[Rfam]
RNA: epsC RNA
Organism: Paenibacillus solani
RNA sequence: AGGUAAUGUCUACUGCACCUCUUUCACUGUAGACACUCGGUCACGCUGUGGGUCUUAAGGGCCUUAGACAUUAUUGUCGAGGGUGUGAUGUGAGGACGGGUUGAAUGCCCU
Number, nucleotide and partner (000 for none) at each position: 001a020002g019003g018004u017005a000006a000007u035008g034009u033010c032011u031012a030013c029014u000015g000016c000017a004018c003019c002020u001021c000022u000023u000024u000025c000026a000027c000028u000029g013030u012031a011032g010033a009034c008035a007036c094037u093038c092039g091040g089041u088042c087043a086044c085045g084046c083047u082048g000049u000050g064051g063052g062053u061054c060055u059056u000057a000058a000059g055060g054061g053062c052063c051064u050065u000066a000067g078068a077069c076070a075071u000072u000073a000074u000075u070076g069077u068078c067079g000080a000081g000082g047083g046084u045085g044086u043087g042088a041089u040090g000091u039092g038093a037094g036095g000096a000097c000098g110099g109100g108101u107102u000103g000104a000105a000106u000107g101108c100109c099110c098111u000